The record is a 69-nucleotide RNA from Homo sapiens, which matches "mir-373 microRNA precursor family" in Rfam. Its family is annotated with miRNA-mediated post-transcriptional gene silencing and RISC complex in the Gene Ontology. Pairs were carried over by alignment from the consensus structure, which was predicted with RNAalifold. Taxonomically the source falls in Homo (Eukaryota, Chordata, Teleostomi, Hominoidea).

RNA sequence: GGGAUACUCAAAAUGGGGGCGCUUUCCUUUUUGUCUGUACUGGGAAGUGCUUCGAUUUUGGGGUGUCCC
Numbered sequence: 001g002g003g004a005u006a007c008u009c010a011a012a013a014u015g016g017g018g019g020c021g022c023u024u025u026c027c028u029u030u031u032u033g034u035c036u037g038u039a040c041u042g043g044g045a046a047g048u049g050c051u052u053c054g055a056u057u058u059u060g061g062g063g064u065g066u067c068c069c
Base pairs, nucleotide, nucleotide: 001069002068003067004066005065006064007063008062009061010059011058012057013056014055016053017052018051019050020049021048022047023046024045025044026043027042